[Rfam]
RNA sequence: GGAUUCCUGGCAGAGUGAUUUGAUAUUGUAUCAUAAAAUCACAUUGCCAGGGAUUUCC
Numbered sequence: 001g002g003a004u005u006c007c008u009g010g011c012a013g014a015g016u017g018a019u020u021u022g023a024u025a026u027u028g029u030a031u032c033a034u035a036a037a038a039u040c041a042c043a044u045u046g047c048c049a050g051g052g053a054u055u056u057c058c
Base pairs, nucleotide, nucleotide: 001058002057003054004053005052006051007050008049009048010047011046012045013044015042016041017040018039019038020037021036
RNA: mir-23 microRNA precursor family